[Rfam]
RNA sequence: UCCACCACAAUGCCAUUAACGGUUUCAGCACAGAUGGAUAGCAACUGACAAGGUGAGAGCGGACAUACUCGGCAUACCCCUCACUGGUCGGCUUGACGCCAAGCUUUACCCUCUAGCGAGGGCAUCUUUGCGGAGGCCGUUUUAACAAACGACUCUUAGUGUUGGUCUCCUCACGCUAACCCCGUAGCGUGUGGCUUCAGCGGGCCUUUUAGGCCCGCUUUUUUUA
Numbered sequence: 001u002c003c004a005c006c007a008c009a010a011u012g013c014c015a016u017u018a019a020c021g022g023u024u025u026c027a028g029c030a031c032a033g034a035u036g037g038a039u040a041g042c043a044a045c046u047g048a049c050a051a052g053g054u055g056a057g058a059g060c061g062g063a064c065a066u067a068c069u070c071g072g073c074a075u076a077c078c079c080c081u082c083a084c085u086g087g088u089c090g091g092c093u094u095g096a097c098g099c100c101a102a103g104c105u106u107u108a109c110c111c112u113c114u115a116g117c118g119a120g121g122g123c124a125u126c127u128u129u130g131c132g133g134a135g136g137c138c139g140u141u142u143u144a145a146c147a148a149a150c151g152a153c154u155c156u157u158a159g160u161g162u163u164g165g166u167c168u169c170c171u172c173a174c175g176c177u178a179a180c181c182c183c184g185u186a187g188c189g190u191g192u193g194g195c196u197u198c199a200g201c202g203g204g205c206c207u208u209u210u211a212g213g214c215c216c217g218c219u220u221u222u223u224u225u226a
Stems, first nucleotide, its partner, number of pairs: 005165003018141009028131003032127005038085001039083001041080001047073001049071001050069001053066003088102001090100003110121004143148001169194002172191007199219008
Shown here is a 226-nucleotide RNA sequence from Mycoavidus cysteinexigens, a member of the family "Burkholderia sRNA Bp1_Cand871_SIPHT". Gene Ontology term of the family: bacterial biofilm matrix. The match comes from Rfam's covariance-model search (114 bits). Rfam classes the family as a small RNA. The base pairs follow the family's consensus structure, which was predicted with CMfinder. On this family, see Khoo et al., BMC Genomics 2012: "Computational discovery and RT-PCR validation of novel Burkholderia conserved and Burkholderia pseudomallei unique sRNAs".